[Rfam]
RNA sequence: GGGGGUGAUCGGUUUCGACUUCGGUGAUUGCUUCAGGGGAAGCGGGUCGAGGGUUUGUAAGUGUAACCUCGUUAAUCCUGCGCUUGCGUAAAUAUCAAGUGCCAACACAAAGCGCACUGAGUUCGCUCUCGCCGCUUAAGCGAUAGCGUCUCUGUCGGCCUGGGUUUGUUCUCGACCCAGUGUCCGGCAUCGGUUAGAGGACUUACCGCUCAGAUCAGGUCACGGGGCCUGAGUGGGAAACUUACGUGACUGGGCCUGUCAGCGACGUGUCUGUGCGAGCGCUGGGGCCGAGUAGAACGGCAGCAUAGACUGCACCCGGAGAAGCCCUGUGGUGACACGGAAGGACGCGGGUUCGAUUCCCGCCACCUCCACUC
Numbered sequence: 001g002g003g004g005g006u007g008a009u010c011g012g013u014u015u016c017g018a019c020u021u022c023g024g025u026g027a028u029u030g031c032u033u034c035a036g037g038g039g040a041a042g043c044g045g046g047u048c049g050a051g052g053g054u055u056u057g058u059a060a061g062u063g064u065a066a067c068c069u070c071g072u073u074a075a076u077c078c079u080g081c082g083c084u085u086g087c088g089u090a091a092a093u094a095u096c097a098a099g100u101g102c103c104a105a106c107a108c109a110a111a112g113c114g115c116a117c118u119g120a121g122u123u124c125g126c127u128c129u130c131g132c133c134g135c136u137u138a139a140g141c142g143a144u145a146g147c148g149u150c151u152c153u154g155u156c157g158g159c160c161u162g163g164g165u166u167u168g169u170u171c172u173c174g175a176c177c178c179a180g181u182g183u184c185c186g187g188c189a190u191c192g193g194u195u196a197g198a199g200g201a202c203u204u205a206c207c208g209c210u211c212a213g214a215u216c217a218g219g220u221c222a223c224g225g226g227g228c229c230u231g232a233g234u235g236g237g238a239a240a241c242u243u244a245c246g247u248g249a250c251u252g253g254g255c256c257u258g259u260c261a262g263c264g265a266c267g268u269g270u271c272u273g274u275g276c277g278a279g280c281g282c283u284g285g286g287g288c289c290g291a292g293u294a295g296a297a298c299g300g301c302a303g304c305a306u307a308g309a310c311u312g313c314a315c316c317c318g319g320a321g322a323a324g325c326c327c328u329g330u331g332g333u334g335a336c337a338c339g340g341a342a343g344g345a346c347g348c349g350g351g352u353u354c355g356a357u358u359c360c361c362g363c364c365a366c367c368u369c370c371a372c373u374c
Base pairs, nucleotide, nucleotide: 001370002369003368004367005366006365007364019343020342021341022340024338025337026336028334031332032331034329035328036327037326038325043318044317045316046315047314048071049070050069051068052067057087058086059085060084061083062082063081124148125147126146127145129143130142131141132140153189154188155187156186157185158184160180161179162178163177164176165175166174168202169201170200171199172198173197206236207235208234209233210232211231212230213229218251219250220249221248222247223246253289254288255287256286257285260284261283262282266277267276269310270309271308272307347363348362349361350360351359

A member of the RNA family "transfer-messenger RNA" from Lipingzhangella halophila, 374 nucleotides long. A search with the family's covariance model found it, with a score of 163 bits. From the family's description: Bacterial tmRNA, also known as 10Sa RNA or SsrA, is named for its dual tRNA and mRNA-like properties. NCBI's taxonomy places the organism under Bacteria, Actinomycetota, Actinomycetes, Streptosporangiales, Lipingzhangella.